Nucleotides: 056
Base pairs, nucleotide, nucleotide: 001022002021003020005018006017007016008015009014026056027055028054030053031052032051033050034049035048036047
Number, partner (000 for none) and nucleotide at each position: 001022c002021c003020g004000g005018g006017c007016g008015g009014c010000g011000a012000c013000c014009g015008u016007c017006g018005c019000a020003c021002g022001g023000g024000a025000a026056c027055u028054g029000a030053c031052a032051c033050c034049g035048g036047u037000a038000c039000c040000u041000g042000a043000u044000a045000c046000g047036g048035c049034c050033g051032g052031u053030g054028c055027a056026g